This 85-nucleotide sequence from Triplophysa rosa belongs to the Rfam family "Small nucleolar RNA SNORD11B". A reference for the family is Yang et al. (2006), "snoSeeker: an advanced computational package for screening of guide and orphan snoRNA genes in the human genome", Nucleic Acids Res. A search with the family's covariance model found it, with a score of 52 bits. The family has 37 seed sequences and 733 matches in Rfam 15.1. Gene Ontology terms of the family: RNA processing and nucleolus. Clan: SNORD11 clan.
RNA sequence: UCCAAGCGGUGAUGAUGAUGACCUUUGAGUCGUGUUGCUGAAUAAUAAUGAGGCUUUUCAAGUCACUAUCUCAUCUGAGCUUGUG
Numbered sequence: 001u002c003c004a005a006g007c008g009g010u011g012a013u014g015a016u017g018a019u020g021a022c023c024u025u026u027g028a029g030u031c032g033u034g035u036u037g038c039u040g041a042a043u044a045a046u047a048a049u050g051a052g053g054c055u056u057u058u059c060a061a062g063u064c065a066c067u068a069u070c071u072c073a074u075c076u077g078a079g080c081u082u083g084u085g
Stems, first nucleotide, its partner, number of pairs: 003083005